Description:
Rfam assigns this 114-nucleotide RNA sequence from Phascolarctos cinereus to the family "Potassium channel RNA editing signal". A search with the family's covariance model found it, with a score of 101 bits. Lineage of the source: Eukaryota > Deuterostomia > Sarcopterygii > Mammalia > Phascolarctos. Pairs were carried over by alignment from the consensus structure, which is taken from published work. The family's RNA type in Rfam is cis-regulatory element.
RNA sequence: CUGGGCUACGGAGACAUGUACCCACAGACAUGGUCAGGCAUGCUAGUGGGGGCGCUGUGUGCGCUCGCAGGGGUGCUGACCAUUGCUAUGCCCGUGCCCGUCAUCGUGAACAAU
Number, nucleotide and partner (000 for none) at each position: 001c000002u113003g000004g111005g000006c000007u108008a107009c106010g105011g104012a000013g102014a101015c100016a000017u000018g097019u096020a095021c094022c000023c000024a000025c000026a000027g000028a000029c000030a000031u000032g000033g000034u000035c000036a000037g077038g076039c075040a074041u000042g000043c000044u000045a000046g000047u000048g000049g000050g062051g000052g000053c000054g000055c000056u000057g000058u000059g000060u000061g000062c050063g000064c000065u000066c000067g000068c000069a000070g000071g000072g000073g000074u040075g039076c038077u037078g000079a000080c000081c000082a000083u000084u000085g000086c000087u000088a000089u000090g000091c000092c000093c000094g021095u020096g019097c018098c000099c000100g015101u014102c013103a000104u011105c010106g009107u008108g007109a000110a000111c004112a000113a002114u000